[Rfam]
RNA: tRNA
RNA sequence: GGAGGGGUGGCUGAGCGGUUGAAAGCACCGGUCUUGAAAACCGGCAAGGGGGUAACCCCUUCCAGGGUUCGAAUCCCUGCCCCUCCG
Numbered sequence: 001g002g003a004g005g006g007g008u009g010g011c012u013g014a015g016c017g018g019u020u021g022a023a024a025g026c027a028c029c030g031g032u033c034u035u036g037a038a039a040a041c042c043g044g045c046a047a048g049g050g051g052g053u054a055a056c057c058c059c060u061u062c063c064a065g066g067g068u069u070c071g072a073a074u075c076c077c078u079g080c081c082c083c084u085c086c087g
Stems, first nucleotide, its partner, number of pairs: 001086007010026003028044005063079005